RNA sequence: CUCGUCCGCCUCGUGGACGCCCCGACCAUCCGUUCCAGGUCCCGGCUACCCUGGCGUCGUGCGUUCUCCCCCGGGACGUCCCCAGCGGACGGCACCCGGGCAGCGCAAAGCCGACAGCCGUCGCAUCCUAGGGAGCCCUUUCAUG
Dot-bracket structure: ...........................................................((((....(((...........................)))...))))..((.(((....))))).....................
Rfam assigns this 145-nucleotide RNA from Streptomyces sp. SID5789 to the family "Streptomyces-metH RNA". NCBI's taxonomy places the organism under Bacteria, Bacillati, Kitasatosporales, Streptomycetaceae, Streptomyces. Rfam classes the family as a small RNA.